[Rfam]
This 68-nucleotide RNA sequence belongs to the Rfam family "L2-Alphaproteobacteria ribosomal protein leader". The literature on the family includes a 2020 paper in BMC Microbiol by Eckert and Weinberg, "Discovery of 20 novel ribosomal leader candidates in bacteria and archaea". It is one of the family's seed sequences. It is annotated as a cis-regulatory leader.
RNA sequence: GGGCACCUACGGGGGCCUAUAACAUCGGGGCAGCGCAAGCCGCCCACACAGAAAACGGAAGACAGUUA
Numbered sequence: 001g002g003g004c005a006c007c008u009a010c011g012g013g014g015g016c017c018u019a020u021a022a023c024a025u026c027g028g029g030g031c032a033g034c035g036c037a038a039g040c041c042g043c044c045c046a047c048a049c050a051g052a053a054a055a056c057g058g059a060a061g062a063c064a065g066u067u068a
Base pairs, nucleotide, nucleotide: 001018002017003016004015006014007013008012028045029044030043031042033040034039